[Rfam]
Nucleotides: 112
Stems, first nucleotide, its partner, number of pairs: 001022007046105003059091008068081003
Number, partner (000 for none) and nucleotide at each position: 001022a002021g003020c004019a005018u006017c007016a008000a009000a010000a011000a012000g013000a014000u015000a016007u017006g018005a019004u020003g021002u022001u023000u024000a025000a026000a027000u028000a029000a030000u031000c032000u033000u034000c035000c036000u037000a038000u039000a040000g041000a042000a043000a044000a045000u046105u047104c048103u049000a050000a051000u052000g053000u054000u055000u056000c057000c058000u059091g060090c061089u062088u063087g064086u065085a066084g067000u068081a069080c070079u071000u072000g073000a074000g075000a076000g077000c078000a079070a080069g081068u082000u083000u084066c085065u086064g087063c088062a089061g090060g091059u092000c093000u094000c095000a096000c097000a098000u099000c100000u101000c102000c103048a104047g105046a106000g107000a108000c109000a110000u111000g112000a
About this RNA: A member of the RNA family "Small nucleolar RNA snoR104" from Gossypium aridum, 112 nucleotides long. The source organism's lineage runs through Eukaryota, Streptophytina, eudicotyledons, Malvaceae and Gossypium. A reference for the family is Marker et al. (2002), "Experimental RNomics: identification of 140 candidates for small non-messenger RNAs in the plant Arabidopsis thaliana", Curr Biol.